[Rfam]
RNA sequence: CAGUUAAAAAGUCCGGAGUCUUCGAGGUUGAAAUUGGGGCACGAGGCCCCAGACAGACAUGAUGGAGGAGCCAAUGGGGAACAUAGUAUACCAGGGCGAGAGAUGAAAUGCCUAGACCCCUGGUGGACUAAGCGAGGCGAAAGCGAUGUUCUUGUGGGUAUUCGGUGAUCAAGGACGAAGGCUGGAGGAUCGAAAGUGAUUAGAUACCGCAGUAGUUCCAGCAGUAAAAGAUGCCGACAUGUCGGCUGGGCACAGCUGACAGGGAGAAAUCUUAGAGUUCGGGCUCUGGGGAUAGUAUGCUCGCAAGAGUGAAAAUUAAAGAAAU
Numbered sequence: 001c002a003g004u005u006a007a008a009a010a011g012u013c014c015g016g017a018g019u020c021u022u023c024g025a026g027g028u029u030g031a032a033a034u035u036g037g038g039g040c041a042c043g044a045g046g047c048c049c050c051a052g053a054c055a056g057a058c059a060u061g062a063u064g065g066a067g068g069a070g071c072c073a074a075u076g077g078g079g080a081a082c083a084u085a086g087u088a089u090a091c092c093a094g095g096g097c098g099a100g101a102g103a104u105g106a107a108a109u110g111c112c113u114a115g116a117c118c119c120c121u122g123g124u125g126g127a128c129u130a131a132g133c134g135a136g137g138c139g140a141a142a143g144c145g146a147u148g149u150u151c152u153u154g155u156g157g158g159u160a161u162u163c164g165g166u167g168a169u170c171a172a173g174g175a176c177g178a179a180g181g182c183u184g185g186a187g188g189a190u191c192g193a194a195a196g197u198g199a200u201u202a203g204a205u206a207c208c209g210c211a212g213u214a215g216u217u218c219c220a221g222c223a224g225u226a227a228a229a230g231a232u233g234c235c236g237a238c239a240u241g242u243c244g245g246c247u248g249g250g251c252a253c254a255g256c257u258g259a260c261a262g263g264g265a266g267a268a269a270u271c272u273u274a275g276a277g278u279u280c281g282g283g284c285u286c287u288g289g290g291g292a293u294a295g296u297a298u299g300c301u302c303g304c305a306a307g308a309g310u311g312a313a314a315a316u317u318a319a320a321g322a323a324a325u
Stems, first nucleotide, its partner, number of pairs: 001288003011176004018169003067163003070159003074155002078152007085129002089125008100111001102109001137144002181222006191215001196210003233284003238275001240261009264271002290317002299310004

Rfam assigns this 325-nucleotide part of an RNA from Cystosporogenes operophterae to the family "Microsporidia small subunit ribosomal RNA". On this family, see Yusupov et al., Science 2001: "Crystal structure of the ribosome at 5.5 A resolution". The family's consensus secondary structure is taken from published work. Rfam 15.1 lists 1,035 matches to the family in 436 species. Its Rfam clan is "SSU clan". Its family is annotated with structural constituent of ribosome and ribosome in the Gene Ontology.